Description:
The family of this 68-nucleotide RNA from Dipodomys ordii is "mir-486 microRNA precursor family".
[Rfam]
Nucleotides: 068
Stems, first nucleotide, its partner, number of pairs: 008061008017052002020049006
Number, partner (000 for none) and nucleotide at each position: 001000g002000g003000a004000u005000c006000c007000u008061g009060u010059a011058c012057u013056g014055a015054g016000c017052u018051g019000c020049c021048c022047u023046g024045a025044g026000g027000c028000u029000c030000u031000u032000c033000u034000u035000u036000g037000u038000g039000u040000c041000c042000a043000a044025c045024u046023c047022g048021g049020g050000g051018c052017a053000a054015c055014u056013c057012a058011g059010u060009a061008c062000a063000g064000g065000a066000u067000g068000c

Source information
A reference for the family is Fu et al. (2005), "Identification of human fetal liver miRNAs by a novel method", FEBS Lett. The family has 16 seed sequences and 224 matches in Rfam 15.1. Taxonomically the source falls in Dipodomys (Eukaryota, Opisthokonta, Sarcopterygii, Eutheria). Gene Ontology terms of the family: miRNA-mediated post-transcriptional gene silencing and RISC complex.